[Rfam]
RNA sequence: UUUGGGAGAUGAAGAUAAUUCAAAAAACCAUCUGAGGCAAAAACACUGCUGAAUUUAAUGGUUUGCACGUCAGUCUGAUCCUGUA
Numbered sequence: 001u002u003u004g005g006g007a008g009a010u011g012a013a014g015a016u017a018a019u020u021c022a023a024a025a026a027a028c029c030a031u032c033u034g035a036g037g038c039a040a041a042a043a044c045a046c047u048g049c050u051g052a053a054u055u056u057a058a059u060g061g062u063u064u065g066c067a068c069g070u071c072a073g074u075c076u077g078a079u080c081c082u083g084u085a
Base pairs, nucleotide, nucleotide: 001085003083004082005081006080007079
The family of this 85-nucleotide sequence from Cucumis sativus is "Small nucleolar RNA Z122". For this family Rfam cites "The high diversity of snoRNAs in plants: identification and comparative study of 120 snoRNA genes from Oryza sativa" (Chen et al., Nucleic Acids Res, 2003). Rfam 15.1 lists 822 matches to the family in 247 species. Rfam links the family to the GO terms RNA processing and nucleolus. A search with the family's covariance model found it, with a score of 58 bits.